This 126-nucleotide sequence from Musa troglodytarum belongs to the Rfam family "Small nucleolar RNA SNORD14". A reference for the family is Samarsky et al. (1996), "An essential domain in Saccharomyces cerevisiae U14 snoRNA is absent in vertebrates, but conserved in other yeasts", Nucleic Acids Res.

RNA sequence: CGUCGAUGAUGAGAGAUCCUAAGGCUUGUUUCUCAAAACAUUCGCAGUGGCCGCCUGAGAGCUUUCGCCUCGCCGGGCUUGAGAGCUUGUGCUGCUCUGUUUUCCCUUCCUUGGAUGUCUGAGAUC
Dot-bracket structure: .(((........................................................((((((..............))))))....................................))).
By type it is a C/D-box small nucleolar RNA. From the family's description: U14 small nucleolar RNA (U14 snoRNA) is required for early cleavages of eukaryotic precursor rRNAs. The family has 18 seed sequences and 4,559 matches in Rfam 15.1.